[Rfam]
RNA sequence: ACAUACUGAGCUUUAGUAUUUUAGAACGGAGACACCCCCAGUUUUGCACUUAAAAAGCAUAGACAGCUCUGCUGAUGUGACAUCCGGUUUCUACGUGCGCUGUGAGCCAAAACAGCUGCUGUUUGCUAUGGAAAAAGUGGCGCCAAUCGAGAUUUUUGAGACCCUAGGCUCAAAAAUAAGGCAUAGAAUUCCAAAGGAAGUCGCUGCCGUGAGCACAACCUAAGAAAAACUAUUCCAAAAGACUUUUUCUGCAAUUUGAAAUACUGAAUUUCAGUAUUUUU
Numbered sequence: 001a002c003a004u005a006c007u008g009a010g011c012u013u014u015a016g017u018a019u020u021u022u023a024g025a026a027c028g029g030a031g032a033c034a035c036c037c038c039c040a041g042u043u044u045u046g047c048a049c050u051u052a053a054a055a056a057g058c059a060u061a062g063a064c065a066g067c068u069c070u071g072c073u074g075a076u077g078u079g080a081c082a083u084c085c086g087g088u089u090u091c092u093a094c095g096u097g098c099g100c101u102g103u104g105a106g107c108c109a110a111a112a113c114a115g116c117u118g119c120u121g122u123u124u125g126c127u128a129u130g131g132a133a134a135a136a137g138u139g140g141c142g143c144c145a146a147u148c149g150a151g152a153u154u155u156u157u158g159a160g161a162c163c164c165u166a167g168g169c170u171c172a173a174a175a176a177u178a179a180g181g182c183a184u185a186g187a188a189u190u191c192c193a194a195a196g197g198a199a200g201u202c203g204c205u206g207c208c209g210u211g212a213g214c215a216c217a218a219c220c221u222a223a224g225a226a227a228a229a230c231u232a233u234u235c236c237a238a239a240a241g242a243c244u245u246u247u248u249c250u251g252c253a254a255u256u257u258g259a260a261a262u263a264c265u266g267a268a269u270u271u272c273a274g275u276a277u278u279u280u281u
Base pairs, nucleotide, nucleotide: 003277004276005275006274007273008272009271010270012268013267014266015265016264017263018262019261020260021259022258023257024256025255027086028085029084030083033079034078035077039074040073041072042071046067047066093122094121095120097119098118099116100115101114102113103112123254124253125252126251130250131249132248133247134246135245136244137243138242140216142214143213144211145210152177153176154175155174156173157172158171159170160169162168163167180208181207182206183205186202187201189199190198191197192196224235225234226233
RNA: Streptococcus sRNA 8